[Rfam]
RNA: Group II catalytic intron D1-D4-3
RNA sequence: GCGAGGGCGACCGAGCGUGGGGAGGAAGCGUGGAGCGUAAACCGCGAGCCGAUGGACAAGAACCGGAUACAAGGCGCUGCCGAGCAGGGCGAGCGGGCAUGAUUCCGCGAAGCUCUCGUGAUCAAGGCGAAGCGGCGUAAAUCCGGCGGUUGUGCGGUGAAGGAGUGCGUUC
Numbered sequence: 001g002c003g004a005g006g007g008c009g010a011c012c013g014a015g016c017g018u019g020g021g022g023a024g025g026a027a028g029c030g031u032g033g034a035g036c037g038u039a040a041a042c043c044g045c046g047a048g049c050c051g052a053u054g055g056a057c058a059a060g061a062a063c064c065g066g067a068u069a070c071a072a073g074g075c076g077c078u079g080c081c082g083a084g085c086a087g088g089g090c091g092a093g094c095g096g097g098c099a100u101g102a103u104u105c106c107g108c109g110a111a112g113c114u115c116u117c118g119u120g121a122u123c124a125a126g127g128c129g130a131a132g133c134g135g136c137g138u139a140a141a142u143c144c145g146g147c148g149g150u151u152g153u154g155c156g157g158u159g160a161a162g163g164a165g166u167g168c169g170u171u172c
Stems, first nucleotide, its partner, number of pairs: 001016002005012002028172001030170003036163001041158006047151005063146006074138003078134003087115004093108004